About this RNA:
The record is a 176-nucleotide sequence, which matches "malK-I RNA" in Rfam.

RNA sequence: UUCCACGGCCUCCGCCACUCCACAACAAUGGCGGACAAGCUGUGAAAAAAAGGAGGAAAAAACGCCCCGGCUCGGGCUGCGGCAGUGUGGAGACCUGUCGUAUACGCAGGCGGCGCAAGCCCCUGUGAGGGCACAUCCGGCGGAGGCCGUGUGUCCGGAGUCAGAAAACUAUGGCA
Numbered sequence: 001u002u003c004c005a006c007g008g009c010c011u012c013c014g015c016c017a018c019u020c021c022a023c024a025a026c027a028a029u030g031g032c033g034g035a036c037a038a039g040c041u042g043u044g045a046a047a048a049a050a051a052g053g054a055g056g057a058a059a060a061a062a063c064g065c066c067c068c069g070g071c072u073c074g075g076g077c078u079g080c081g082g083c084a085g086u087g088u089g090g091a092g093a094c095c096u097g098u099c100g101u102a103u104a105c106g107c108a109g110g111c112g113g114c115g116c117a118a119g120c121c122c123c124u125g126u127g128a129g130g131g132c133a134c135a136u137c138c139g140g141c142g143g144a145g146g147c148c149g150u151g152u153g154u155c156c157g158g159a160g161u162c163a164g165a166a167a168a169c170u171a172u173g174g175c176a
Stems, first nucleotide, its partner, number of pairs: 006042004011035007064077004069162005078102008087094002106126005112121003129156008139148003

It is annotated as a cis-regulatory element.